[Rfam]
RNA: Bacterial RNase P class A
RNA sequence: CGGUGGCAGAUGAUCGCUGUCGGCGCGAGCUGGCAGAGGAAAGUCCGAACACCACAAGGCAGCAUGCCGCGUAAAACACGCGGAGGCGCCGGGCCCAAGCCUGGCGCGAUGGAAAGUGUCACAGAAAACAAACCGCCCGCGGCGCAAGUCGCGGGUAAGGGUGAAAAGGCGGGGUAAAAGCCCACCGCCCGGUGCGCAAGCCCCGGGGCACGACAAACCCCAUGCGGUGCAAGGCAAAACAGGGAGCUGGGCCGCCUGCCCGGCUCUACCUCGGGCGAAAGCCUUGGGUAGAGCCACUCCCGGGUAAUAGUCGCACCAGCACGUCGCAAGGCGUGCGGCGAUCCGCGCAAGCGGGUCGAGAGAAAUGAUCGUCACCGGCGCGGGCAACUGUGCCGGAACAGAAUUCGGCUUAUCGCCGCCAAAAU
Numbered sequence: 001c002g003g004u005g006g007c008a009g010a011u012g013a014u015c016g017c018u019g020u021c022g023g024c025g026c027g028a029g030c031u032g033g034c035a036g037a038g039g040a041a042a043g044u045c046c047g048a049a050c051a052c053c054a055c056a057a058g059g060c061a062g063c064a065u066g067c068c069g070c071g072u073a074a075a076a077c078a079c080g081c082g083g084a085g086g087c088g089c090c091g092g093g094c095c096c097a098a099g100c101c102u103g104g105c106g107c108g109a110u111g112g113a114a115a116g117u118g119u120c121a122c123a124g125a126a127a128a129c130a131a132a133c134c135g136c137c138c139g140c141g142g143c144g145c146a147a148g149u150c151g152c153g154g155g156u157a158a159g160g161g162u163g164a165a166a167a168g169g170c171g172g173g174g175u176a177a178a179a180g181c182c183c184a185c186c187g188c189c190c191g192g193u194g195c196g197c198a199a200g201c202c203c204c205g206g207g208g209c210a211c212g213a214c215a216a217a218c219c220c221c222a223u224g225c226g227g228u229g230c231a232a233g234g235c236a237a238a239a240c241a242g243g244g245a246g247c248u249g250g251g252c253c254g255c256c257u258g259c260c261c262g263g264c265u266c267u268a269c270c271u272c273g274g275g276c277g278a279a280a281g282c283c284u285u286g287g288g289u290a291g292a293g294c295c296a297c298u299c300c301c302g303g304g305u306a307a308u309a310g311u312c313g314c315a316c317c318a319g320c321a322c323g324u325c326g327c328a329a330g331g332c333g334u335g336c337g338g339c340g341a342u343c344c345g346c347g348c349a350a351g352c353g354g355g356u357c358g359a360g361a362g363a364a365a366u367g368a369u370c371g372u373c374a375c376c377g378g379c380g381c382g383g384g385c386a387a388c389u390g391u392g393c394c395g396g397a398a399c400a401g402a403a404u405u406c407g408g409c410u411u412a413u414c415g416c417c418g419c420c421a422a423a424a425u
Stems, first nucleotide, its partner, number of pairs: 002420006008413001009373007017036008041411003045408005050229004062225005067083005084110001086107009111220002116218002118214003133160002135156009168186002171183003187209001188207005194201002234336003341356006